The family of this 195-nucleotide sequence from Lysinibacillus alkalisoli is "Bacillus sRNA ncr1575". The organism belongs to Lysinibacillus, within Bacteria. It scores 74 bits against the family's covariance model.
[Rfam]
RNA sequence: UAUCAAAUUUAUGAACGGGGUGACGUGUGGACGAUGGAUAACUAAUCUCUUGCAAAAAUGAUGGAUGCGAAUAUAGUUCGUUUUCUUUUCAAUUUUAUGGGAUUAGUCUGUCUAUUUUAGUACACGCACACACACAAGUUGUGCUUAUUAAGUAUGGACUAAUCCUUCUAAACAGUAGUUUAGGAGGAUUUUUCU
Numbered sequence: 001u002a003u004c005a006a007a008u009u010u011a012u013g014a015a016c017g018g019g020g021u022g023a024c025g026u027g028u029g030g031a032c033g034a035u036g037g038a039u040a041a042c043u044a045a046u047c048u049c050u051u052g053c054a055a056a057a058a059u060g061a062u063g064g065a066u067g068c069g070a071a072u073a074u075a076g077u078u079c080g081u082u083u084u085c086u087u088u089u090c091a092a093u094u095u096u097a098u099g100g101g102a103u104u105a106g107u108c109u110g111u112c113u114a115u116u117u118u119a120g121u122a123c124a125c126g127c128a129c130a131c132a133c134a135c136a137a138g139u140u141g142u143g144c145u146u147a148u149u150a151a152g153u154a155u156g157g158a159c160u161a162a163u164c165c166u167u168c169u170a171a172a173c174a175g176u177a178g179u180u181u182a183g184g185a186g187g188a189u190u191u192u193u194c195u
Stems, first nucleotide, its partner, number of pairs: 017118002025113001027111001030108003043105007051097002054094002060082007127143003161190011
Rfam classes the family as a small RNA.